[Rfam]
RNA sequence: UCGAGGAAAAGGUAAACCGUUCCGAAAGGGCGGGACACAAAGCCACGGGGCUACAGCGCUUGCUAUGCCGGCCGAGCUGCCGUU
Numbered sequence: 001u002c003g004a005g006g007a008a009a010a011g012g013u014a015a016a017c018c019g020u021u022c023c024g025a026a027a028g029g030g031c032g033g034g035a036c037a038c039a040a041a042g043c044c045a046c047g048g049g050g051c052u053a054c055a056g057c058g059c060u061u062g063c064u065a066u067g068c069c070g071g072c073c074g075a076g077c078u079g080c081c082g083u084u
Stems, first nucleotide, its partner, number of pairs: 012038002017033004022029002041078003046074003049069003056063002
This 84-nucleotide sequence from Alicyclobacillus sp. SO9 belongs to the Rfam family "c-di-GMP-I riboswitch aptamer".
NCBI's taxonomy places the organism under Bacteria, Bacillati, Bacillota, Bacilli, Alicyclobacillus.
GEMM was predicted in a large-scale screen for bacterial structured RNA regulatory elements. Genes associated with GEMM are involved in a diverse array of functions, including chemotaxis regulation, signal transduction, secretion and chitin.
Pairs were carried over by alignment from the consensus structure, which is taken from published work.